mir-26 microRNA precursor family: an 81-nucleotide RNA from Thamnophis sirtalis.
NCBI's taxonomy places the organism under Eukaryota, Amniota, Unidentata, Serpentes, Thamnophis.

[Rfam]
RNA sequence: CUGUGGCCGGGUUCAAGUAAUCCAGGAUAGGCUGUGUACAAUAUUAGUGGCCUAUCCUAGAGUACUUGCACCGGGACGUAG
Numbered sequence: 001c002u003g004u005g006g007c008c009g010g011g012u013u014c015a016a017g018u019a020a021u022c023c024a025g026g027a028u029a030g031g032c033u034g035u036g037u038a039c040a041a042u043a044u045u046a047g048u049g050g051c052c053u054a055u056c057c058u059a060g061a062g063u064a065c066u067u068g069c070a071c072c073g074g075g076a077c078g079u080a081g
Stems, first nucleotide, its partner, number of pairs: 002080004007075002010072003014068006021061002024058010